The family of this 301-nucleotide RNA sequence from Yamadazyma tenuis is "Nuclear RNase P". Ribonuclease P (RNase P) is a ubiquitous endoribonuclease, found in archaea, bacteria and eukarya as well as chloroplasts and mitochondria. Its best characterised activity is the generation of mature 5'-ends of tRNAs by cleaving the 5'-leader elements of precursor-tRNAs. Cellular RNase Ps are ribonucleoproteins. RNA from bacterial RNase Ps retains its catalytic activity in the absence of the protein subunit, i.e. it is a ribozyme. Isolated eukaryotic and archaeal RNase P RNA has not been shown to retain its catalytic function, but is still essential for the catalytic activity of the holoenzyme. Although the archaeal and eukaryotic holoenzyme s have a much greater protein content than the bacterial ones, the RNA cores from all the three lineages are homologous -- helices corresponding to P1, P2, P3, P4, and P10/11 are common to all cellular RNase P RNAs. Yet, there is considerable sequence variation, particularly among the eukaryotic RNAs. Its Rfam clan is "RNaseP clan". Its family is annotated with tRNA processing, ribonuclease P activity and ribonuclease P complex in the Gene Ontology. A search with the family's covariance model found it, with a score of 67 bits.
[Rfam]
RNA sequence: ACUGUUCGUAUUUACCCGUUCACACAAGACUCAGUUCGAGUACGAAACGCGGGUGGGAAAUUCGGUGAUUCUCUCCGUCCAGGGCGUGCGGGUGGCGGUAUCAGUACCACCAGCCGCACGCCACAAUGUGCUCUUGAGAGCUCCAGGCGUGAAACGCUGGGUGCACGGCAUCAGAAACUAACGGUAAAGUAAUUUAUCGUAUGGGAGCCGUGUCGGACGGUUGAUCUUCCAUUAGUGGGGAGGUACUUGAGUGCAAUAUACGAACUUCAACUCGUUUGAAGAACUCGAUACCGAUCACAGU
Number, nucleotide and partner (000 for none) at each position: 001a000002c000003u263004g000005u000006u260007c000008g000009u000010a000011u000012u000013u000014a054015c053016c052017c051018g050019u000020u000021c000022a000023c000024a000025c000026a000027a000028g000029a041030c040031u039032c038033a000034g000035u000036u000037c000038g032039a031040g030041u029042a000043c000044g000045a000046a000047a000048c000049g000050c018051g017052g016053g015054u014055g000056g000057g000058a000059a000060a000061u000062u000063c293064g292065g291066u290067g289068a000069u000070u000071c000072u000073c000074u000075c000076c000077g218078u217079c216080c215081a000082g000083g000084g000085c000086g000087u000088g000089c000090g000091g000092g000093u000094g000095g000096c000097g000098g000099u000100a000101u000102c000103a000104g000105u000106a000107c000108c000109a000110c000111c000112a000113g000114c000115c000116g000117c000118a000119c000120g000121c000122c000123a000124c000125a000126a000127u000128g000129u000130g141131c140132u139133c138134u000135u000136g000137a000138g133139a132140g131141c130142u000143c160144c159145a158146g157147g000148c000149g000150u000151g000152a000153a000154a000155c000156g000157c146158u145159g144160g143161g000162u000163g213164c212165a211166c210167g209168g208169c207170a000171u000172c000173a000174g000175a000176a000177a000178c000179u000180a000181a200182c199183g198184g197185u196186a000187a000188a000189g000190u000191a000192a000193u000194u000195u000196a185197u184198c183199g182200u181201a000202u000203g000204g000205g000206a000207g169208c168209c167210g166211u165212g164213u163214c000215g080216g079217a078218c077219g000220g000221u000222u000223g000224a000225u000226c000227u000228u000229c000230c000231a000232u000233u000234a000235g000236u000237g000238g000239g000240g000241a000242g000243g000244u000245a000246c000247u000248u000249g000250a000251g000252u000253g000254c000255a000256a000257u000258a000259u000260a006261c000262g000263a003264a000265c281266u280267u279268c278269a277270a276271c000272u000273c000274g000275u000276u270277u269278g268279a267280a266281g265282a000283a000284c000285u000286c000287g000288a000289u067290a066291c065292c064293g063294a000295u000296c000297a000298c000299a000300g000301u000